[Rfam]
RNA: c-di-GMP-I riboswitch aptamer
RNA sequence: CGAAUGAAAAGGCAAAGCUGAUGAAAGUCAGUGACGCAAAGUCAUGGGUCUAAAACACAUUUGUUAUGAUCGCCAGGCUACCAAC
Dot-bracket structure: ...........((...((((((....))))))...))..((((.((((((....(((....)))...)))..)))))))......